[Rfam]
RNA sequence: AUUUGAAAAUGAUGCAAUAUGUAUCCAGAGGUUGUUUCUGAUGAGAUUGCCAUCUCAAAAGCUGGAAAAUCUGCACGUCAGUCUGAUUCAAUA
Numbered sequence: 001a002u003u004u005g006a007a008a009a010u011g012a013u014g015c016a017a018u019a020u021g022u023a024u025c026c027a028g029a030g031g032u033u034g035u036u037u038c039u040g041a042u043g044a045g046a047u048u049g050c051c052a053u054c055u056c057a058a059a060a061g062c063u064g065g066a067a068a069a070u071c072u073g074c075a076c077g078u079c080a081g082u083c084u085g086a087u088u089c090a091a092u093a
Base pairs, nucleotide, nucleotide: 003091004090005089006088007087
RNA: Small nucleolar RNA Z122